[Rfam]
RNA: BsrG
Organism: Paenibacillus donghaensis
RNA sequence: AGCAAUAGAAUAGGCUUAAAGGGUCGGUCGGCUACCUCUCUAUAGAAGGGAGGGAUGCCUUGUGACAGUGUUCGAAGCAAUGAUGCUCAUGCUAACCUUUGGUUUGCUAAUCGUAGCGCUGCUGUCCAAUAAACGCAAAUAGACCGCCCUCAUAGCAAAGGUGUGCGGUCUAUUCGGUCGUUGUCCUCUUGUGAAGCCAACCGCCCUUAAAAGCGGCUAUUGUGCACUGGGAGUCGUGUUAGAGCACGGCUC
Numbered sequence: 001a002g003c004a005a006u007a008g009a010a011u012a013g014g015c016u017u018a019a020a021g022g023g024u025c026g027g028u029c030g031g032c033u034a035c036c037u038c039u040c041u042a043u044a045g046a047a048g049g050g051a052g053g054g055a056u057g058c059c060u061u062g063u064g065a066c067a068g069u070g071u072u073c074g075a076a077g078c079a080a081u082g083a084u085g086c087u088c089a090u091g092c093u094a095a096c097c098u099u100u101g102g103u104u105u106g107c108u109a110a111u112c113g114u115a116g117c118g119c120u121g122c123u124g125u126c127c128a129a130u131a132a133a134c135g136c137a138a139a140u141a142g143a144c145c146g147c148c149c150u151c152a153u154a155g156c157a158a159a160g161g162u163g164u165g166c167g168g169u170c171u172a173u174u175c176g177g178u179c180g181u182u183g184u185c186c187u188c189u190u191g192u193g194a195a196g197c198c199a200a201c202c203g204c205c206c207u208u209a210a211a212a213g214c215g216g217c218u219a220u221u222g223u224g225c226a227c228u229g230g231g232a233g234u235c236g237u238g239u240u241a242g243a244g245c246a247c248g249g250c251u252c
Base pairs, nucleotide, nucleotide: 002225003224004223007220009218013198014197015196016195017194020150021149022148023147027144028143029142035054036053038052039051040050041049064126065125066124067123068122069121070120077092078091079090102117103116104115162176163175201216202215203214204213231252232251233250234249235248236247237246238245239244